[Rfam]
RNA sequence: ACCCAUGCUGACAUGGAGGGAGGCUCCCGCUGUGUGACGGCGCUCCUCGUCUGACAGUUCUUAAAUAACGGGGGGCGGGGCCACCCGGUGACCCCGCCCCCCGUUAUUUAAGAACUGUCAGACGAGGAGCGCCGUCACACAGCGGGAGCCUCCCUCCAUGCCAGCAUGGGU
Numbered sequence: 001a002c003c004c005a006u007g008c009u010g011a012c013a014u015g016g017a018g019g020g021a022g023g024c025u026c027c028c029g030c031u032g033u034g035u036g037a038c039g040g041c042g043c044u045c046c047u048c049g050u051c052u053g054a055c056a057g058u059u060c061u062u063a064a065a066u067a068a069c070g071g072g073g074g075g076c077g078g079g080g081c082c083a084c085c086c087g088g089u090g091a092c093c094c095c096g097c098c099c100c101c102c103g104u105u106a107u108u109u110a111a112g113a114a115c116u117g118u119c120a121g122a123c124g125a126g127g128a129g130c131g132c133c134g135u136c137a138c139a140c141a142g143c144g145g146g147a148g149c150c151u152c153c154c155u156c157c158a159u160g161c162c163a164g165c166a167u168g169g170g171u
Base pairs, nucleotide, nucleotide: 002170003169005167006166007165008164009163010162012160013159014158015157016156017155018154020152021151022150023149024148025147026146027145028144029143030142031141032140033139034138036136037135038134043129044128045127046126048124049123050122051121052120053119054118055117056116057115058114059113061111062110065107066106067105069103070102071101072100073099074098075097076096077095078094079093080092